Overview:
A member of the RNA family "mir-199 microRNA precursor family" from Muraenolepis orangiensis, 80 nucleotides long. On this family, see Mourelatos et al., Genes Dev 2002: "miRNPs: a novel class of ribonucleoproteins containing numerous microRNAs". The base pairs follow the family's consensus structure, which was predicted with RNAalifold. The match comes from Rfam's covariance-model search (88 bits). Rfam's curators write: This family consists of the microRNA (miRNA) precursor mir-199 which appears to be specific to humans. Animal miRNAs are transcribed as ~70nt precursors and subsequently processed by the Dicer enzyme to give a ~22nt product. In this case the mature sequence comes from the 3' arm of the precursor. The extents of the hairpin precursors are not generally known and are estimated based on hairpin prediction. The products are thought to have regulatory roles through complementarity to mRNA. The involvement of Dicer in miRNA processing suggests a relationship with the phenomenon of RNA interference. miRNAs are numbered based on the sequence of the mature RNA. Lineage of the source: Eukaryota > Gnathostomata > Ctenosquamata > Gadiformes > Muraenolepis.

[Rfam]
RNA sequence: GCUCGGUCGUCCCAGUGUUCAGACUACCUGUUCAGGCCCUGACUGGUGUACAGUAGUCUGCACAUUGGUUAGACCGUGCG
Numbered sequence: 001g002c003u004c005g006g007u008c009g010u011c012c013c014a015g016u017g018u019u020c021a022g023a024c025u026a027c028c029u030g031u032u033c034a035g036g037c038c039c040u041g042a043c044u045g046g047u048g049u050a051c052a053g054u055a056g057u058c059u060g061c062a063c064a065u066u067g068g069u070u071a072g073a074c075c076g077u078g079c080g
Stems, first nucleotide, its partner, number of pairs: 012068007020060007028053004033048002